Annotation: The record is an 83-nucleotide sequence from Patulibacter medicamentivorans, which matches "c-di-GMP-I-GGC riboswitch aptamer" in Rfam. It scores 61 bits against the family's covariance model.
[Rfam]
RNA sequence: GGUGCCAAGGGCAAACCACUCGUGAGGGUGGGACGCAAAGCCACGGGCCUCUCCCACGUGGAGAGGAAGCCGGGUCGCCACCG
Numbered sequence: 001g002g003u004g005c006c007a008a009g010g011g012c013a014a015a016c017c018a019c020u021c022g023u024g025a026g027g028g029u030g031g032g033a034c035g036c037a038a039a040g041c042c043a044c045g046g047g048c049c050u051c052u053c054c055c056a057c058g059u060g061g062a063g064a065g066g067a068a069g070c071c072g073g074g075u076c077g078c079c080a081c082c083g
Stems, first nucleotide, its partner, number of pairs: 003080002011036002016031006034069001040075003044072003048066006